[Rfam]
RNA sequence: AACAAUUUUAUAUUGUUGCCGCAGACAGCAGGGGUGCACAGCACUUAAACGUCCUGCCGAGGUACCAUUCCUAUACAUUGAACGCUUUGACGCGUUUUACGGGAGUAGUGUCUUCGUGUCUGCUAAUUGGACAGGAAGAUUUUUUUGUGUCUGC
Numbered sequence: 001a002a003c004a005a006u007u008u009u010a011u012a013u014u015g016u017u018g019c020c021g022c023a024g025a026c027a028g029c030a031g032g033g034g035u036g037c038a039c040a041g042c043a044c045u046u047a048a049a050c051g052u053c054c055u056g057c058c059g060a061g062g063u064a065c066c067a068u069u070c071c072u073a074u075a076c077a078u079u080g081a082a083c084g085c086u087u088u089g090a091c092g093c094g095u096u097u098u099a100c101g102g103g104a105g106u107a108g109u110g111u112c113u114u115c116g117u118g119u120c121u122g123c124u125a126a127u128u129g130g131a132c133a134g135g136a137a138g139a140u141u142u143u144u145u146u147g148u149g150u151c152u153g154c
Stems, first nucleotide, its partner, number of pairs: 028057006034044003111139005117133006